RNA sequence: UAACCGCGGUUGAGAAGCCGCGCUGAAUCCGCAGGAGUCAGCAGAGGCCAUAGUACGCUAGUACGGGACGCCGGAAAGCGGAAGGGC
Numbered sequence: 001u002a003a004c005c006g007c008g009g010u011u012g013a014g015a016a017g018c019c020g021c022g023c024u025g026a027a028u029c030c031g032c033a034g035g036a037g038u039c040a041g042c043a044g045a046g047g048c049c050a051u052a053g054u055a056c057g058c059u060a061g062u063a064c065g066g067g068a069c070g071c072c073g074g075a076a077a078g079c080g081g082a083a084g085g086g087c
Base pairs, nucleotide, nucleotide: 001025002024005022006021007020008019009018010017011016038045039044047087048086049085056080057079058078
Dot-bracket structure: ((..(((((((....))))))).))............((....)).(((......(((...................)))....)))
Group II catalytic intron D1-D4-1: an 87-nucleotide RNA sequence from Paenibacillus cremeus. A search with the family's covariance model found it, with a score of 63 bits. About the family: Group II introns are found in rRNA, tRNA and mRNA of organelles in fungi, plants and protists, and also in mRNA in bacteria. Its family is annotated with Group II intron splicing in the Gene Ontology. Pairs were carried over by alignment from the consensus structure. The source organism's lineage runs through Bacteria, Bacillati, Bacilli, Paenibacillaceae and Paenibacillus.